[Rfam]
RNA sequence: GCUGGACACGGUGGCCUGUGCCUGUAAUCCCAGUGCCAGGGAGGCUGAAACUGGUGGAUGGCUUGAGCUGGGGGGCUCUGGGCUGCAGCGAGCUCUGCCGAGCGGGUGUCAGCAUCGAUAUGGUGGUCCUGGGGGAGCCAGGGGACACCAGGUUGCCUAAGGAGGGGUGAACCGGCCCAGGUCGGAGAUGGAGCAGGUCAAAGCUCCCGUGCUGGUCAGUAGUGGGAUGGUGCCUGUGAACAGUCCCUGUAGCACAGCCUGGGUGGGAGAGCAGGACCUGGUUUUGU
Numbered sequence: 001g002c003u004g005g006a007c008a009c010g011g012u013g014g015c016c017u018g019u020g021c022c023u024g025u026a027a028u029c030c031c032a033g034u035g036c037c038a039g040g041g042a043g044g045c046u047g048a049a050a051c052u053g054g055u056g057g058a059u060g061g062c063u064u065g066a067g068c069u070g071g072g073g074g075g076c077u078c079u080g081g082g083c084u085g086c087a088g089c090g091a092g093c094u095c096u097g098c099c100g101a102g103c104g105g106g107u108g109u110c111a112g113c114a115u116c117g118a119u120a121u122g123g124u125g126g127u128c129c130u131g132g133g134g135g136a137g138c139c140a141g142g143g144g145a146c147a148c149c150a151g152g153u154u155g156c157c158u159a160a161g162g163a164g165g166g167g168u169g170a171a172c173c174g175g176c177c178c179a180g181g182u183c184g185g186a187g188a189u190g191g192a193g194c195a196g197g198u199c200a201a202a203g204c205u206c207c208c209g210u211g212c213u214g215g216u217c218a219g220u221a222g223u224g225g226g227a228u229g230g231u232g233c234c235u236g237u238g239a240a241c242a243g244u245c246c247c248u249g250u251a252g253c254a255c256a257g258c259c260u261g262g263g264u265g266g267g268a269g270a271g272c273a274g275g276a277c278c279u280g281g282u283u284u285u286g287u
Stems, first nucleotide, its partner, number of pairs: 001045003004023002007020005028042003047285008059274001061272004067264003071260003078257003082253007090245001092244003096240001098238001102237008110226001111213005116155004121150005127144004132139002156162002164207005174199004182191003
RNA: Metazoan signal recognition particle RNA
Organism: Chordeiles acutipennis